A member of the RNA family "Small nucleolar RNA U54" from Zea mays, 84 nucleotides long.
The base pairs follow the family's consensus structure, which was predicted with PFOLD.
Rfam describes the family as follows. U54 is a C/D box small nucleolar RNA, which acts as a methylation guide for 18S ribosomal RNA in plants.
Its family is annotated with nucleolus and RNA processing in the Gene Ontology.
The family has 21 seed sequences and 614 matches in Rfam 15.1.
Rfam classes the family as a C/D-box small nucleolar RNA.
[Rfam]
RNA sequence: UGCUCAAUGAUUCAGCCAUGGUAAAUCAUGGUAAUAUACGCUAUUCUGAUCCACACAAGGAUGUCAACAACAUUUCUGAGAGCA
Numbered sequence: 001u002g003c004u005c006a007a008u009g010a011u012u013c014a015g016c017c018a019u020g021g022u023a024a025a026u027c028a029u030g031g032u033a034a035u036a037u038a039c040g041c042u043a044u045u046c047u048g049a050u051c052c053a054c055a056c057a058a059g060g061a062u063g064u065c066a067a068c069a070a071c072a073u074u075u076c077u078g079a080g081a082g083c084a
Stems, first nucleotide, its partner, number of pairs: 001084005